[Rfam]
RNA: terC RNA
RNA sequence: GCGGCGGCCCGGGCCCCUCUGGUGCGCGAUGCGAAUCGCGCAUGAUGUCGGGCCGCCCUU
Numbered sequence: 001g002c003g004g005c006g007g008c009c010c011g012g013g014c015c016c017c018u019c020u021g022g023u024g025c026g027c028g029a030u031g032c033g034a035a036u037c038g039c040g041c042a043u044g045a046u047g048u049c050g051g052g053c054c055g056c057c058c059u060u
Stems, first nucleotide, its partner, number of pairs: 006054007022043008